[Rfam]
RNA sequence: UGACAUGUUCGUAGUGUAGCGAUCAGGAUAAUCAAAAAAAAUACUAAAUUAA
Numbered sequence: 001u002g003a004c005a006u007g008u009u010c011g012u013a014g015u016g017u018a019g020c021g022a023u024c025a026g027g028a029u030a031a032u033c034a035a036a037a038a039a040a041a042u043a044c045u046a047a048a049u050u051a052a
Base pairs, nucleotide, nucleotide: 006025007024009022010021011020014044015043016042017041
The record is a 52-nucleotide RNA sequence, which matches "6A RNA" in Rfam. Rfam's curators put it in the seed alignment. The base pairs follow the family's consensus structure, which is taken from published work.